[Rfam]
RNA sequence: GUGCGAUGACUGAUUUGGAUAAGUUUCGGCUGACUGCUUUUUUGAUGCCAACUUUUUAUUUUGCUGAGCAC
Numbered sequence: 001g002u003g004c005g006a007u008g009a010c011u012g013a014u015u016u017g018g019a020u021a022a023g024u025u026u027c028g029g030c031u032g033a034c035u036g037c038u039u040u041u042u043u044g045a046u047g048c049c050a051a052c053u054u055u056u057u058a059u060u061u062u063g064c065u066g067a068g069c070a071c
Stems, first nucleotide, its partner, number of pairs: 001071004
The family of this 71-nucleotide RNA sequence from Caenorhabditis brenneri is "Caenorhabditis snoRNA ceN108". The organism belongs to Caenorhabditis, within Eukaryota. The base pairs follow the family's consensus structure. Its family is annotated with nucleolus and RNA processing in the Gene Ontology. For this family Rfam cites "Systematic identification of non-coding RNA 2,2,7-trimethylguanosine cap structures in Caenorhabditis elegans" (Jia et al., BMC Mol Biol, 2007).